The family of this 160-nucleotide RNA sequence from Streptomyces sp. NRRL WC-3618 is "c-di-AMP riboswitch aptamer (ydaO/yuaA leader)".

[Rfam]
RNA sequence: CCGCCUCGAACACCCGACCACGGCAGGAGCGGGGGACCCACAGGUAGAACGCCUGCUCCGGUCUCCGGAACAGGCUAGGGGUCAAGUCACGUCCAGGCGUGACCGGACAUCUCCAGUCCGCACCCGACAGCUCACCUCGCAGGCGCCGGAGAAAGAAUUC
Number, nucleotide and partner (000 for none) at each position: 001c000002c145003g144004c143005c142006u000007c000008g000009a000010a000011c000012a000013c027014c026015c000016g000017a000018c000019c000020a000021c000022g000023g000024c000025a000026g014027g013028a000029g140030c139031g138032g137033g136034g135035g000036a000037c000038c000039c078040a000041c000042a000043g000044g000045u000046a000047g000048a000049a000050c000051g000052c000053c000054u000055g000056c000057u000058c000059c000060g000061g000062u000063c000064u000065c000066c000067g000068g000069a000070a000071c000072a000073g000074g000075c000076u000077a000078g039079g125080g124081g123082u000083c000084a000085a000086g000087u102088c101089a100090c099091g000092u000093c000094c000095a000096g000097g000098c000099g090100u089101g088102a087103c000104c000105g119106g118107a117108c116109a000110u000111c000112u000113c000114c000115a000116g108117u107118c106119c105120g000121c000122a000123c081124c080125c079126g000127a000128c000129a000130g000131c000132u000133c000134a000135c034136c033137u032138c031139g030140c029141a000142g005143g004144c003145g002146c000147c000148g000149g000150a000151g000152a000153a000154a000155g000156a000157a000158u000159u000160c000